[Rfam]
Overview: Archaeal large subunit ribosomal RNA: a 255-nucleotide part of an RNA from Methanobrevibacter smithii. On this family, see Yusupov et al., Science 2001: "Crystal structure of the ribosome at 5.5 A resolution".
RNA sequence: AGUAGUCUGAGGGGAAGGUGGCUCCAGUACGAGAGGAACGAGUUGUCGGCGCCUCUGGUCGACCGGUUGUCUGAUAAGGCAGUGCCGGGCAGCUACGCGCUAGGUGAUAAAGGCUGAAAGCAUCUAAGCCUGAGGUAUCCCCUGAAAAUAGAUUGCUUAGGACGUGAGUAGAAGACUUGUUUGAUGGGGUAGGGAUGUAAGCUUCGAGGUUUUUUUUCCGAGUUGUUUAGUCCGCUACUUCCAAUUGUUCGCUUG
Numbered sequence: 001a002g003u004a005g006u007c008u009g010a011g012g013g014g015a016a017g018g019u020g021g022c023u024c025c026a027g028u029a030c031g032a033g034a035g036g037a038a039c040g041a042g043u044u045g046u047c048g049g050c051g052c053c054u055c056u057g058g059u060c061g062a063c064c065g066g067u068u069g070u071c072u073g074a075u076a077a078g079g080c081a082g083u084g085c086c087g088g089g090c091a092g093c094u095a096c097g098c099g100c101u102a103g104g105u106g107a108u109a110a111a112g113g114c115u116g117a118a119a120g121c122a123u124c125u126a127a128g129c130c131u132g133a134g135g136u137a138u139c140c141c142c143u144g145a146a147a148a149u150a151g152a153u154u155g156c157u158u159a160g161g162a163c164g165u166g167a168g169u170a171g172a173a174g175a176c177u178u179g180u181u182u183g184a185u186g187g188g189g190u191a192g193g194g195a196u197g198u199a200a201g202c203u204u205c206g207a208g209g210u211u212u213u214u215u216u217u218c219c220g221a222g223u224u225g226u227u228u229a230g231u232c233c234g235c236u237a238c239u240u241c242c243a244a245u246u247g248u249u250c251g252c253u254u255g
Stems, first nucleotide, its partner, number of pairs: 001157008011143004017047008048101005056095003063088005068081005104138003111131005160250004164180005185243003188239005193233003201226002205222001208219001
The family's consensus secondary structure is taken from published work.